A member of the RNA family "ffh sRNA" from Rhodobacter sp. 24-YEA-8, 53 nucleotides long.
[Rfam]
RNA sequence: AUUGCCCGGGAUCGCCAUCCGUCAGCGCGUUUGCGCCCACGGGUGCGAAACCG
Numbered sequence: 001a002u003u004g005c006c007c008g009g010g011a012u013c014g015c016c017a018u019c020c021g022u023c024a025g026c027g028c029g030u031u032u033g034c035g036c037c038c039a040c041g042g043g044u045g046c047g048a049a050a051c052c053g
Stems, first nucleotide, its partner, number of pairs: 016045007025036004
The match comes from Rfam's covariance-model search (63 bits). Taxonomically the source falls in Rhodobacter (Bacteria, Pseudomonadati, Pseudomonadota, Alphaproteobacteria). The family's consensus secondary structure is taken from published work.